[Rfam]
RNA sequence: UUAUUGCUGUGGCAUACGAAUUCACAUCAAUGUGUUGACCGACUAAAUAUUUGUAUUUCGGGAAACAGUAGUCUUUCUCCAGUAUGCAGGCCGUUACACGCGGAAGCAACUAAGGAGAAGCGAGUUGCCCACCUGCUUGUAGAUUGCGGGUUCAAUACAAAUCGUGAAUCACGGUGCCAAUACAGCUUCUUA
Dot-bracket structure: .....((((((((((.((............((((.(((((...................(((.(((.......(((((((.....((...((((.....))))..))......)))))))...))).)))..................)).))).))))............))))))...))))))......
Numbered sequence: 001u002u003a004u005u006g007c008u009g010u011g012g013c014a015u016a017c018g019a020a021u022u023c024a025c026a027u028c029a030a031u032g033u034g035u036u037g038a039c040c041g042a043c044u045a046a047a048u049a050u051u052u053g054u055a056u057u058u059c060g061g062g063a064a065a066c067a068g069u070a071g072u073c074u075u076u077c078u079c080c081a082g083u084a085u086g087c088a089g090g091c092c093g094u095u096a097c098a099c100g101c102g103g104a105a106g107c108a109a110c111u112a113a114g115g116a117g118a119a120g121c122g123a124g125u126u127g128c129c130c131a132c133c134u135g136c137u138u139g140u141a142g143a144u145u146g147c148g149g150g151u152u153c154a155a156u157a158c159a160a161a162u163c164g165u166g167a168a169u170c171a172c173g174g175u176g177c178c179a180a181u182a183c184a185g186c187u188u189c190u191u192a
Stems, first nucleotide, its partner, number of pairs: 006186006012177004017173002031159004036154003039150002060130003064126003074120007086107002091103004
Overview:
This 192-nucleotide sequence from Streptococcus pasteurianus belongs to the Rfam family "6S / SsrS RNA". The match comes from Rfam's covariance-model search (62 bits). The family has 150 seed sequences and 5,006 matches in Rfam 15.1. The organism belongs to Streptococcus pasteurianus, within Bacteria. E. coli 6S RNA was the first non coding RNA to be sequenced, but its function was unknown until recently. It consists of 184 nucleotides that fold into an extended hairpin structure with a large single-stranded internal bulge.